[Rfam]
RNA sequence: AAAUUUAAUAGGCAAACUUAAGGAAACUUAAGGACGCAAAGCUAUAGGGACUAAAGUAAAAAUUAUGUCAGCCAGUUGCAAAG
Numbered sequence: 001a002a003a004u005u006u007a008a009u010a011g012g013c014a015a016a017c018u019u020a021a022g023g024a025a026a027c028u029u030a031a032g033g034a035c036g037c038a039a040a041g042c043u044a045u046a047g048g049g050a051c052u053a054a055a056g057u058a059a060a061a062a063u064u065a066u067g068u069c070a071g072c073c074a075g076u077u078g079c080a081a082a083g
Base pairs, nucleotide, nucleotide: 012037013036017032018031019030020029021028022027040077041076042075043074047073048072049069050068051067056063057062
RNA: c-di-GMP-I riboswitch aptamer